[Rfam]
RNA sequence: GGGCCGGCUUUAGCCCAGUGGUUCCUUCGACUUCUACGUGUUUGACUCCACGCCUGUACCGAUCGCCUCGCGGGCGGUUCGCGUCCUGAGCCGAUCCGAGACCCACGGGCGCUUUCUGGCCCUUUU
Numbered sequence: 001g002g003g004c005c006g007g008c009u010u011u012a013g014c015c016c017a018g019u020g021g022u023u024c025c026u027u028c029g030a031c032u033u034c035u036a037c038g039u040g041u042u043u044g045a046c047u048c049c050a051c052g053c054c055u056g057u058a059c060c061g062a063u064c065g066c067c068u069c070g071c072g073g074g075c076g077g078u079u080c081g082c083g084u085c086c087u088g089a090g091c092c093g094a095u096c097c098g099a100g101a102c103c104c105a106c107g108g109g110c111g112c113u114u115u116c117u118g119g120c121c122c123u124u125u126u
Stems, first nucleotide, its partner, number of pairs: 002121006013110004018106004026100004
RNA: Vault RNA
Organism: Monodelphis domestica